A member of the RNA family "Bacterial large signal recognition particle RNA" from Paenibacillus baekrokdamisoli, 265 nucleotides long. The base pairs follow the family's consensus structure, which is taken from published work. The signal recognition particle (SRP) is a universally conserved ribonucleoprotein involved in the co-translational targeting of proteins to membranes. The literature on the family includes a 2003 paper in Nucleic Acids Res by Rosenblad et al., "SRPDB: Signal Recognition Particle Database". Gene Ontology terms of the family: SRP-dependent cotranslational protein targeting to membrane, signal sequence recognition and signal recognition particle, plasma membrane targeting. The source organism's lineage runs through Bacteria, Bacillota, Caryophanales, Paenibacillaceae and Paenibacillus.
[Rfam]
RNA sequence: CCGUGCUAGACGGGGAGGUAGCGGUGCCCUGUAACUCGCAAUCCGCUGUAGCGAGGUUGAAUUCCUAUUCGAGGUUAUGUUCAUGCGAGGCUGGUCUUUAUGAACAGUGUUGACGGACGGGUCCUCCGCAAUGGGCGCUUGUGAACGGGUCAGGUCCGGAAGGAAGCAGCCAUAAGCAGGUACGCUCAUGUGCCGGAGGAGUGCCUGACCUGAGCUGGAAUUAAAGUUUCCGCUUGUGUGGCAUAUAUCGGAGAUAGGUGCACGG
Numbered sequence: 001c002c003g004u005g006c007u008a009g010a011c012g013g014g015g016a017g018g019u020a021g022c023g024g025u026g027c028c029c030u031g032u033a034a035c036u037c038g039c040a041a042u043c044c045g046c047u048g049u050a051g052c053g054a055g056g057u058u059g060a061a062u063u064c065c066u067a068u069u070c071g072a073g074g075u076u077a078u079g080u081u082c083a084u085g086c087g088a089g090g091c092u093g094g095u096c097u098u099u100a101u102g103a104a105c106a107g108u109g110u111u112g113a114c115g116g117a118c119g120g121g122u123c124c125u126c127c128g129c130a131a132u133g134g135g136c137g138c139u140u141g142u143g144a145a146c147g148g149g150u151c152a153g154g155u156c157c158g159g160a161a162g163g164a165a166g167c168a169g170c171c172a173u174a175a176g177c178a179g180g181u182a183c184g185c186u187c188a189u190g191u192g193c194c195g196g197a198g199g200a201g202u203g204c205c206u207g208a209c210c211u212g213a214g215c216u217g218g219a220a221u222u223a224a225a226g227u228u229u230c231c232g233c234u235u236g237u238g239u240g241g242c243a244u245a246u247a248u249c250g251g252a253g254a255u256a257g258g259u260g261c262a263c264g265g
Stems, first nucleotide, its partner, number of pairs: 001265006009058003012030004017025001019023001035055005064258006073249003081241009093229002096226005105218001106216003115210002118207005123199006129190002132188005137181006148171003155164003